[Rfam]
A member of the RNA family "int-alpA RNA" from Aporhodopirellula rubra, 74 nucleotides long.
RNA sequence: GCCACGGCUAGGUUUAGCGGCCGAAAAGCCGGUCCCAUGCCGGCCCCGCCGUGGCUCUUCAUUCACCUACAUGG
Numbered sequence: 001g002c003c004a005c006g007g008c009u010a011g012g013u014u015u016a017g018c019g020g021c022c023g024a025a026a027a028g029c030c031g032g033u034c035c036c037a038u039g040c041c042g043g044c045c046c047c048g049c050c051g052u053g054g055c056u057c058u059u060c061a062u063u064c065a066c067c068u069a070c071a072u073g074g
Stems, first nucleotide, its partner, number of pairs: 001055008011022004028044005034074002

Annotation: The source organism's lineage runs through Bacteria, Pseudomonadati, Planctomycetota, Pirellulaceae and Aporhodopirellula. The family's consensus secondary structure is taken from published work. Rfam's curators write: Acidobacteria (1 example), Planctomycetes (1 example), Proteobacteria.